Source information:
TPP riboswitch aptamer (THI element): a 90-nucleotide sequence from Caviibacterium pharyngocola.
RNA sequence: GCUCAUUAGUCGGGGUGCUAUAGCAGCUGAGAUGAUACCCGUGAACCUGAUACAGUUAAUACUGACGUAGGAAACUAAUAAUCCGAUUUC
Numbered sequence: 001g002c003u004c005a006u007u008a009g010u011c012g013g014g015g016u017g018c019u020a021u022a023g024c025a026g027c028u029g030a031g032a033u034g035a036u037a038c039c040c041g042u043g044a045a046c047c048u049g050a051u052a053c054a055g056u057u058a059a060u061a062c063u064g065a066c067g068u069a070g071g072a073a074a075c076u077a078a079u080a081a082u083c084c085g086a087u088u089u090c
Stems, first nucleotide, its partner, number of pairs: 006078005011041004016035001017027003046071004053064003
Overview: Taxonomically the source falls in Caviibacterium (Bacteria, Pseudomonadota, Gammaproteobacteria, Pasteurellaceae).